[Rfam]
RNA: Enterobacterial sRNA STnc240
RNA sequence: UCCGUCUGGUGCAGAAUAUGCGCCCUGCAAAAUGAAUCUAUAACCGACGCUUAUGCGCCGGUUAUUUUUUUGC
Number, nucleotide and partner (000 for none) at each position: 001u000002c000003c000004g000005u000006c000007u000008g000009g000010u000011g021012c020013a000014g000015a000016a000017u000018a000019u000020g012021c011022g000023c000024c000025c000026u000027g000028c000029a000030a000031a000032a000033u000034g000035a000036a000037u000038c000039u000040a000041u064042a063043a062044c061045c060046g059047a000048c057049g056050c000051u000052u000053a000054u000055g000056c049057g048058c000059c046060g045061g044062u043063u042064a041065u000066u000067u000068u000069u000070u000071u000072g000073c000